[Rfam]
RNA sequence: GCCCAGCCUGCGCCGUCUACGCAGGUUCGGCAAUCUGUAGGCAGGCCGCCCGUACCGGCACGGGGCGGCACAGAUCUCAUAAGGAGGA
Dot-bracket structure: (((.((((((((.......)))))))).))).((((((......(((((((...........))))))))))))).............

Overview: aspS RNA: an 88-nucleotide RNA sequence from Collinsella sp. An271. The organism belongs to Collinsella, within Bacteria. Pairs were carried over by alignment from the consensus structure, which is taken from published work. It scores 71 bits against the family's covariance model.